This 104-nucleotide part of an RNA from uncultured marine crenarchaeote 'Gulf of Maine' belongs to the Rfam family "Archaeal large subunit ribosomal RNA".
[Rfam]
RNA sequence: UGCGUGGCAUGAAAGGUGAUUUUUUCAGAUUAGAGAUUCUAGCAAUAGAGUUGAAGAUUUGAUGUUCAAAUCAUCAGUGUCACGCGUUCCGUCUCGAAACACGG
Number, nucleotide and partner (000 for none) at each position: 001u086002g085003c084004g083005u082006g081007g080008c079009a078010u077011g000012a000013a000014a000015g075016g074017u000018g000019a000020u000021u069022u068023u000024u000025u000026c064027a063028g000029a000030u000031u000032a000033g000034a000035g000036a000037u050038u049039c048040u047041a046042g000043c000044a000045a000046u041047a040048g039049a038050g037051u000052u000053g000054a000055a000056g000057a000058u000059u000060u000061g000062a000063u027064g026065u000066u000067c000068a022069a021070a000071u000072c000073a000074u016075c015076a000077g010078u009079g008080u007081c006082a005083c004084g003085c002086g001087u000088u000089c104090c103091g102092u101093c000094u000095c000096g000097a000098a000099a000100c000101a092102c091103g090104g089